[Rfam]
A member of the RNA family "c-di-AMP riboswitch aptamer (ydaO/yuaA leader)", 179 nucleotides long. It scores 63 bits against the family's covariance model.

RNA sequence: UCGCGUCAUGCGCCGAAGGCAGGAGCGGGGGACCCAAGGUAAGUGCCGGCCCGGCGGCCAUGGAGACAUGGCACCGACAACCGGCUUGGGGUGAAGCCGCGCGCACAGCAGUGCCGCGCGGCCGGGCAGCUCACGCCCGAACCCGACAGCUCACCUCGCAGGCGUCGGUGAGGAGAUGU
Numbered sequence: 001u002c003g004c005g006u007c008a009u010g011c012g013c014c015g016a017a018g019g020c021a022g023g024a025g026c027g028g029g030g031g032a033c034c035c036a037a038g039g040u041a042a043g044u045g046c047c048g049g050c051c052c053g054g055c056g057g058c059c060a061u062g063g064a065g066a067c068a069u070g071g072c073a074c075c076g077a078c079a080a081c082c083g084g085c086u087u088g089g090g091g092u093g094a095a096g097c098c099g100c101g102c103g104c105a106c107a108g109c110a111g112u113g114c115c116g117c118g119c120g121g122c123c124g125g126g127c128a129g130c131u132c133a134c135g136c137c138c139g140a141a142c143c144c145g146a147c148a149g150c151u152c153a154c155c156u157c158g159c160a161g162g163c164g165u166c167g168g169u170g171a172g173g174a175g176a177u178g179u
Stems, first nucleotide, its partner, number of pairs: 011164004025159006035088004089144003097121007124138004